[Rfam]
RNA sequence: GUAUGCCUGGCUCCCUGUAUGCCAUUUGCAGAGAGCCCACCGGAAAAUCGAUGGCCUCCGUGGAUGGCGUAUGAGGAGCCAUGCAUAU
Numbered sequence: 001g002u003a004u005g006c007c008u009g010g011c012u013c014c015c016u017g018u019a020u021g022c023c024a025u026u027u028g029c030a031g032a033g034a035g036c037c038c039a040c041c042g043g044a045a046a047a048u049c050g051a052u053g054g055c056c057u058c059c060g061u062g063g064a065u066g067g068c069g070u071a072u073g074a075g076g077a078g079c080c081a082u083g084c085a086u087a088u
Stems, first nucleotide, its partner, number of pairs: 001088006008081007016073009027062003
Dot-bracket structure: ((((((.(((((((.(((((((((..(((..............................)))..))))))))).))))))).))))))

Record summary:
This 88-nucleotide RNA sequence from Ziziphus jujuba belongs to the Rfam family "mir-160 microRNA precursor family". It scores 72 bits against the family's covariance model. On this family, see Rhoades et al., Cell 2002: "Prediction of plant microRNA targets". Its family is annotated with RISC complex and miRNA-mediated post-transcriptional gene silencing in the Gene Ontology.